[Rfam]
RNA sequence: AGGCCCGAAGAGAGAGGCAGGGUCUGAUUCCCAGCCUCCAUGGCAUCUGUUGAUCAGCUGUUGCUCUCUCUUUCUCUCCU
Numbered sequence: 001a002g003g004c005c006c007g008a009a010g011a012g013a014g015a016g017g018c019a020g021g022g023u024c025u026g027a028u029u030c031c032c033a034g035c036c037u038c039c040a041u042g043g044c045a046u047c048u049g050u051u052g053a054u055c056a057g058c059u060g061u062u063g064c065u066c067u068c069u070c071u072u073u074c075u076c077u078c079c080u
Stems, first nucleotide, its partner, number of pairs: 008072008017064004022059001024057006032049003
Dot-bracket structure: .......((((((((.((((.(.((((((..(((............)))..)))))).).))))))))))))........
This 80-nucleotide sequence from Myotis brandtii belongs to the Rfam family "mir-574 microRNA precursor family". Its Rfam clan is "mir-574 microRNA precursor clan". The organism belongs to Myotis, within Eukaryota. A reference for the family is Lui et al. (2007), "Patterns of known and novel small RNAs in human cervical cancer", Cancer Res.